[Rfam]
RNA sequence: CCAGGGGGCCGGGCAGCUGCGGGUCGAAAGACGCGAGGAAAGUCCGGGCUCCACGAAACAAGGGUGGCGGGUAACACCCGCCGGGGGUGACCCUAGGGAAAGUGCCACAGAGAGUAUACCGCCGAUGGAGGCUAAACCUCACAGGCAAGGGUGAAAGGGUGCGGUAAAAGCGCACCGGGGCUGCUGGUAACAGCGCCCGCAUGGUAAACCCCACCCGGAGCAAGGCCAAAUAGGGGCCUCGCGCCGCAAGGCAGGAGCGUUUCGUUCCGAGAGGUCCGGGUUGGCUGCUUGAGCGCAGGGAGCAAUCCCUCGCCUAGAUGAAUGGCUGCCGCUGCAAGGCUGGUGUGCAAACAUACCGCUUGCAGGACAGAACCCGGCUUACAGGCCCCCUGGCACA
Numbered sequence: 001c002c003a004g005g006g007g008g009c010c011g012g013g014c015a016g017c018u019g020c021g022g023g024u025c026g027a028a029a030g031a032c033g034c035g036a037g038g039a040a041a042g043u044c045c046g047g048g049c050u051c052c053a054c055g056a057a058a059c060a061a062g063g064g065u066g067g068c069g070g071g072u073a074a075c076a077c078c079c080g081c082c083g084g085g086g087g088u089g090a091c092c093c094u095a096g097g098g099a100a101a102g103u104g105c106c107a108c109a110g111a112g113a114g115u116a117u118a119c120c121g122c123c124g125a126u127g128g129a130g131g132c133u134a135a136a137c138c139u140c141a142c143a144g145g146c147a148a149g150g151g152u153g154a155a156a157g158g159g160u161g162c163g164g165u166a167a168a169a170g171c172g173c174a175c176c177g178g179g180g181c182u183g184c185u186g187g188u189a190a191c192a193g194c195g196c197c198c199g200c201a202u203g204g205u206a207a208a209c210c211c212c213a214c215c216c217g218g219a220g221c222a223a224g225g226c227c228a229a230a231u232a233g234g235g236g237c238c239u240c241g242c243g244c245c246g247c248a249a250g251g252c253a254g255g256a257g258c259g260u261u262u263c264g265u266u267c268c269g270a271g272a273g274g275u276c277c278g279g280g281u282u283g284g285c286u287g288c289u290u291g292a293g294c295g296c297a298g299g300g301a302g303c304a305a306u307c308c309c310u311c312g313c314c315u316a317g318a319u320g321a322a323u324g325g326c327u328g329c330c331g332c333u334g335c336a337a338g339g340c341u342g343g344u345g346u347g348c349a350a351a352c353a354u355a356c357c358g359c360u361u362g363c364a365g366g367a368c369a370g371a372a373c374c375c376g377g378c379u380u381a382c383a384g385g386c387c388c389c390c391u392g393g394c395a396c397a
Stems, first nucleotide, its partner, number of pairs: 001393010011382001012330007020035002023032003040380003044377005049220004058262001060260001062216005067081005082096001083094004097211002102209002104205003119150002121146003126141003158176006178200001179198002182195005224286004234277006254268005293313003297310005

The family of this 397-nucleotide RNA sequence from Altererythrobacter ishigakiensis is "Bacterial RNase P class A". The base pairs follow the family's consensus structure, which is taken from published work. Rfam describes the family as follows. Ribonuclease P (RNase P) is a ubiquitous endoribonuclease, found in archaea, bacteria and eukarya as well as chloroplasts and mitochondria. A reference for the family is Frank and Pace (1998), "Ribonuclease P: unity and diversity in a tRNA processing ribozyme", Annu Rev Biochem. The match comes from Rfam's covariance-model search (290 bits).